A member of the RNA family "SAM riboswitch aptamer (S box leader)" from Halomarinibacterium sedimenti, 110 nucleotides long. Taxonomically the source falls in Halomarinibacterium (Bacteria, Pseudomonadati, Bacteroidota, Flavobacteriales). The family's consensus secondary structure is taken from published work. Gene Ontology term of the family: regulation of gene expression. From the family's description: The SAM riboswitch is found upstream of a number of genes which code for proteins involved in methionine or cysteine biosynthesis in Gram-positive bacteria.
[Rfam]
RNA sequence: ACGUUAUCAAGAAAGGUGGAGGGAAUAGACCCUUUGAAACCUUAGCAACCCUUUGCCAUGCAAUGAAGGUGCUACAUUCUAUCUGAAGUUAAUUUCAGAAUAGAUAACAA
Numbered sequence: 001a002c003g004u005u006a007u008c009a010a011g012a013a014a015g016g017u018g019g020a021g022g023g024a025a026u027a028g029a030c031c032c033u034u035u036g037a038a039a040c041c042u043u044a045g046c047a048a049c050c051c052u053u054u055g056c057c058a059u060g061c062a063a064u065g066a067a068g069g070u071g072c073u074a075c076a077u078u079c080u081a082u083c084u085g086a087a088g089u090u091a092a093u094u095u096c097a098g099a100a101u102a103g104a105u106a107a108c109a110a
Base pairs, nucleotide, nucleotide: 003108004107005106006105007104008103013043014042015041016040017039021032022031023030026081027080028079029078044073045072046071047070049069050068051065053063054062077102082099083098084097085096086095087094
Dot-bracket structure: ..((((((....(((((...(((..[[[[)))......)))))((((.(((.((.......)).)..))))))...(]]]]((((((......))))))..)))))))..